The family of this 55-nucleotide RNA from Lupinus albus is "Plastid-ccsA-ndhD-1 3UTR RNA". The source organism's lineage runs through Eukaryota, Spermatophyta, Fabaceae, core genistoids and Lupinus. The family's consensus secondary structure was predicted with LocARNA. By type it is a cis-regulatory element. It scores 49 bits against the family's covariance model. On this family, see Richter et al., Plant Commun 2023: "Retrograde signaling in plants: A critical review focusing on the GUN pathway and beyond".
RNA sequence: AAUCGUUCGAGAACCCUUUAAAUCAAGUAAUAUAAUGAUUCAAGGGGUUCGAAAA
Numbered sequence: 001a002a003u004c005g006u007u008c009g010a011g012a013a014c015c016c017u018u019u020a021a022a023u024c025a026a027g028u029a030a031u032a033u034a035a036u037g038a039u040u041c042a043a044g045g046g047g048u049u050c051g052a053a054a055a
Stems, first nucleotide, its partner, number of pairs: 007052002011050009021040005
Rfam describes the family as follows. Plastid-ccsA-ndhD-1 is a non-coding RNA (ncRNA) recognised in plastids. It was found in the three prime untranslated region (3UTR) of ccsA and ndhD genes, its 3UTR location suggests a role in transcript maturation.